[Rfam]
RNA: c-di-AMP riboswitch aptamer (ydaO/yuaA leader)
Organism: Lysinibacillus sphaericus
RNA sequence: AUUUCUAAAUCGCUGAAGCAACUAAACGCGGGGGACCCAAUUUUGAUGGAUUGUCUCUACAAUUCUUGGGGUGAAUCUCUUUACAAGAGUAGGGCUACUCAGGCCCGAAUCCGACAGCUAACCUCGUAAGCGUUAAGAGCAGAAAA
Number, nucleotide and partner (000 for none) at each position: 001a000002u000003u000004u000005c000006u000007a000008a000009a000010u000011c132012g131013c130014u129015g000016a000017a000018g027019c000020a000021a000022c000023u000024a000025a000026a000027c018028g127029c126030g125031g124032g123033g122034g000035a000036c000037c000038c068039a067040a000041u000042u000043u000044u000045g000046a000047u000048g000049g000050a000051u000052u000053g000054u000055c000056u000057c000058u000059a000060c000061a000062a000063u000064u000065c000066u000067u039068g038069g112070g111071g110072u000073g000074a000075a000076u000077c089078u088079c087080u086081u000082u000083a000084c000085a000086a080087g079088a078089g077090u000091a000092g106093g105094g104095c103096u000097a000098c000099u000100c000101a000102g000103g095104c094105c093106c092107g000108a000109a000110u071111c070112c069113g000114a000115c000116a000117g000118c000119u000120a000121a000122c033123c032124u031125c030126g029127u028128a000129a014130g013131c012132g011133u000134u000135a000136a000137g000138a000139g000140c000141a000142g000143a000144a000145a000146a000